[Rfam]
RNA: FMN riboswitch aptamer (RFN element)
RNA sequence: AUUCAUCUUCGGGGCAGGGUGCAAUUCCCGACCGGCGGUAAUAGAAUAGUUUAUUAUUCUCGAGCCCGCGAACCGCAAGGUUGAUUUGGUGUAACUCCAAAGCCGACAGUAUAGUCUGGAUGGGAGAAGGUGAAG
Number, nucleotide and partner (000 for none) at each position: 001a000002u000003u133004c132005a131006u130007c129008u128009u127010c126011g000012g000013g000014g000015c000016a000017g029018g028019g027020u000021g000022c000023a000024a000025u000026u000027c019028c018029c017030g000031a115032c114033c105034g104035g069036c068037g067038g066039u000040a000041a000042u000043a000044g000045a000046a000047u000048a000049g000050u000051u000052u000053a000054u000055u000056a000057u000058u000059c000060u000061c000062g000063a000064g103065c102066c038067c037068g036069c035070g000071a000072a081073c080074c079075g000076c000077a000078a000079g074080g073081u072082u000083g000084a000085u101086u100087u099088g098089g097090u000091g000092u000093a000094a000095c000096u000097c089098c088099a087100a086101a085102g065103c064104c034105g033106a000107c118108a117109g116110u000111a000112u000113a000114g032115u031116c109117u108118g107119g000120a000121u000122g000123g000124g000125a000126g010127a009128a008129g007130g006131u005132g004133a003134a000135g000